[Rfam]
Nucleotides: 052
Base pairs, nucleotide, nucleotide: 011028012027013026014025015024016023033046034045035044036043037042
Number, partner (000 for none) and nucleotide at each position: 001000a002000c003000g004000u005000g006000g007000g008000a009000c010000a011028c012027c013026u014025c015024u016023c017000c018000c019000c020000a021000a022000c023016g024015a025014g026013a027012g028011g029000c030000g031000a032000a033046u034045a035044u036043c037042u038000g039000g040000a041000a042037g043036g044035g045034u046033a047000a048000c049000a050000g051000a052000g

serC leader: a 52-nucleotide sequence. It is annotated as a cis-regulatory leader. From the family's description: This family is a putative regulatory RNA structure that is found upstream of the serC-serA operon in some alpha-proteobacteria. The final stem of the structure overlaps the ribosome binding site of the serC reading frame. The base pairs follow the family's consensus structure. Rfam links the family to the GO term regulation of gene expression. The literature on the family includes a 2005 paper in Genome Biol by Corbino et al., "Evidence for a second class of S-adenosylmethionine riboswitches and other regulatory RNA motifs in alpha-proteobacteria".